[Rfam]
RNA: S4-Clostridia ribosomal protein leader
RNA sequence: GAAAGGCCGGAUUUUCCGGCUGGGUGUUUACCGAGACACCCCAAUUAGG
Numbered sequence: 001g002a003a004a005g006g007c008c009g010g011a012u013u014u015u016c017c018g019g020c021u022g023g024g025u026g027u028u029u030a031c032c033g034a035g036a037c038a039c040c041c042c043a044a045u046u047a048g049g
Base pairs, nucleotide, nucleotide: 005021006020007019008018009017010016011015022041023040024039025038026037027036028035